[Rfam]
RNA sequence: GGUUUUAACCCCAGUAACUAAGGUUAGUAAGGGAUUCGACCAUUCGAAAGAGUGCGUUGAUAAAACUAUAAUUUUUGGAAAAGCUUCUUCGGGGUAAUCCGUUGAAGCGAC
Numbered sequence: 001g002g003u004u005u006u007a008a009c010c011c012c013a014g015u016a017a018c019u020a021a022g023g024u025u026a027g028u029a030a031g032g033g034a035u036u037c038g039a040c041c042a043u044u045c046g047a048a049a050g051a052g053u054g055c056g057u058u059g060a061u062a063a064a065a066c067u068a069u070a071a072u073u074u075u076u077g078g079a080a081a082a083g084c085u086u087c088u089u090c091g092g093g094g095u096a097a098u099c100c101g102u103u104g105a106a107g108c109g110a111c
Base pairs, nucleotide, nucleotide: 007036008035009032010031013028016025017024018023037059038058039057040056041054042053043052044051045050085109087107088106089105090104091103092102093100094099
A member of the RNA family "SL2 RNA" from Caenorhabditis latens, 111 nucleotides long. Gene Ontology term of the family: mRNA trans splicing, via spliceosome. The family is grouped with related families in Rfam's "SL clan". Rfam's curators write: This family represents SL2 RNA. SL2 RNA is involved in trans splicing in lower eukaryotes. Trans-splicing is a form of RNA processing. The acquisition of a spliced leader from a SL RNA is a intra-molecular reaction which precisely joins exons derived from separately transcribed RNAs. Approximately 25% of C. elegans genes are organised into polycistronic transcription units and the presence of SL2 on an mRNA is an indication the the gene is in an operon. The literature on the family includes a 2000 paper in Mol Cell Biol by Evans and Blumenthal, "trans splicing of polycistronic Caenorhabditis elegans pre-mRNAs: analysis of the SL2 RNA". It is annotated as a non-coding RNA gene. The family's consensus secondary structure is taken from published work.